[Rfam]
RNA: MIR2617 microRNA precursor family
RNA sequence: AAGUUGUGUGACAUGCCCGUUGUUGUUGAACUCUGAUUAUUUUAUUUAAUAUUUAAUUGUUGGGAUAACGGGGUGUUACACUGAU
Numbered sequence: 001a002a003g004u005u006g007u008g009u010g011a012c013a014u015g016c017c018c019g020u021u022g023u024u025g026u027u028g029a030a031c032u033c034u035g036a037u038u039a040u041u042u043u044a045u046u047u048a049a050u051a052u053u054u055a056a057u058u059g060u061u062g063g064g065a066u067a068a069c070g071g072g073g074u075g076u077u078a079c080a081c082u083g084a085u
Stems, first nucleotide, its partner, number of pairs: 002085001004083001006081009016072006